[Rfam]
RNA sequence: GAUACCAGGGUGAGAAACCCUGGCGCCGAAUGACCAAGGGUUCCAGGGCCAGGCUAGUCCGCCCUGGGUGAGUCGGGACCUAAGGCGAGGCCGACAGGCGUAGUCGAUGGACAACGGGUCGAUAUUCCCGUACCGGCGAAGCACCGCCCAUGCUGACGCGCGGGUGCUGACCCACGCCCUGUAGCACAAUCAGCCCGGCAGCCUGCUUCGGUAGGCUCUGGACUGGUGCCACGGGGUCUGGGGACCCUCCGCGCAGGUAGGCAAGCGUAUUAACAGGGGUGACGCACAGUGGUAGCCUCGCGGGCCUAAUGGCUUGGCCCGUCUAAGCGCGCAGCCUGGUACCCAGGCAAAUCCGGGUACCUGCCCUCAACGGCACAGGCCAGGCGUGAUGGGGAACCCACCCAAGGGGUGGGGGAAGCAAGGUGAUCCUGUGGUGCCAAGAAAAGCCUCGACGCGAUGGUGCCAGCCGCCCGUACCCUAAACCGACACAGGUGGUCGGGCAGAGUAUGCCUAGGCGCA
Numbered sequence: 001g002a003u004a005c006c007a008g009g010g011u012g013a014g015a016a017a018c019c020c021u022g023g024c025g026c027c028g029a030a031u032g033a034c035c036a037a038g039g040g041u042u043c044c045a046g047g048g049c050c051a052g053g054c055u056a057g058u059c060c061g062c063c064c065u066g067g068g069u070g071a072g073u074c075g076g077g078a079c080c081u082a083a084g085g086c087g088a089g090g091c092c093g094a095c096a097g098g099c100g101u102a103g104u105c106g107a108u109g110g111a112c113a114a115c116g117g118g119u120c121g122a123u124a125u126u127c128c129c130g131u132a133c134c135g136g137c138g139a140a141g142c143a144c145c146g147c148c149c150a151u152g153c154u155g156a157c158g159c160g161c162g163g164g165u166g167c168u169g170a171c172c173c174a175c176g177c178c179c180u181g182u183a184g185c186a187c188a189a190u191c192a193g194c195c196c197g198g199c200a201g202c203c204u205g206c207u208u209c210g211g212u213a214g215g216c217u218c219u220g221g222a223c224u225g226g227u228g229c230c231a232c233g234g235g236g237u238c239u240g241g242g243g244a245c246c247c248u249c250c251g252c253g254c255a256g257g258u259a260g261g262c263a264a265g266c267g268u269a270u271u272a273a274c275a276g277g278g279g280u281g282a283c284g285c286a287c288a289g290u291g292g293u294a295g296c297c298u299c300g301c302g303g304g305c306c307u308a309a310u311g312g313c314u315u316g317g318c319c320c321g322u323c324u325a326a327g328c329g330c331g332c333a334g335c336c337u338g339g340u341a342c343c344c345a346g347g348c349a350a351a352u353c354c355g356g357g358u359a360c361c362u363g364c365c366c367u368c369a370a371c372g373g374c375a376c377a378g379g380c381c382a383g384g385c386g387u388g389a390u391g392g393g394g395a396a397c398c399c400a401c402c403c404a405a406g407g408g409g410u411g412g413g414g415g416a417a418g419c420a421a422g423g424u425g426a427u428c429c430u431g432u433g434g435u436g437c438c439a440a441g442a443a444a445a446g447c448c449u450c451g452a453c454g455c456g457a458u459g460g461u462g463c464c465a466g467c468c469g470c471c472c473g474u475a476c477c478c479u480a481a482a483c484c485g486a487c488a489c490a491g492g493u494g495g496u497c498g499g500g501c502a503g504a505g506u507a508u509g510c511c512u513a514g515g516c517g518c519a
Base pairs, nucleotide, nucleotide: 005023006022007021008020009019010018024517025516026515027514032497033496034495035494038477039476043067044066045065046064047063048062052060053059074473075472076471077470079110080109084105085104086103088101090099091098092097115251116250117249118248256468257467258466260464261463262462263461276450277449278448279447280446284437285436286435287434291429292428295424296423297422298421300322301321302320303319304318305317323392324391327387328386329385330384334380335379336378338361339360340359341358342357343356344355346354347353397413398412399411400410401409402408403407483492484491499511500510501509502508